skipping-rope RNA: an 80-nucleotide RNA sequence from Carnobacteriaceae bacterium zg-C25.
By type it is a small RNA.
It scores 73 bits against the family's covariance model.
RNA sequence: UAAGUUUGAGGGCAGAAAGGCACCUGCCGCACCUUUAAAAAGGUAUCUGAGAUGUUGGAUACGCCGCCCAACCGAAUUUA
Numbered sequence: 001u002a003a004g005u006u007u008g009a010g011g012g013c014a015g016a017a018a019g020g021c022a023c024c025u026g027c028c029g030c031a032c033c034u035u036u037a038a039a040a041a042g043g044u045a046u047c048u049g050a051g052a053u054g055u056u057g058g059a060u061a062c063g064c065c066g067c068c069c070a071a072c073c074g075a076a077u078u079u080a
Stems, first nucleotide, its partner, number of pairs: 001080008011028005019065003030049001031044004054072005